[Rfam]
RNA sequence: UGGGAACCUGCACGACCGCAAAUCCGACUCGCCGGCCGAUUGGUCGGCUUGGGAUUGCGGUAGUGC
Dot-bracket structure: .........((((.(((((((..((.....(((((((....)))))))...)).))))))).))))
The family of this 66-nucleotide RNA sequence is "S15-Halobacteria ribosomal protein leader".
A reference for the family is Eckert and Weinberg (2020), "Discovery of 20 novel ribosomal leader candidates in bacteria and archaea", BMC Microbiol.
The family is grouped with related families in Rfam's "Ribosomal Protein S15 Leader clan".
It is one of the family's seed sequences.
Rfam classes the family as a cis-regulatory leader.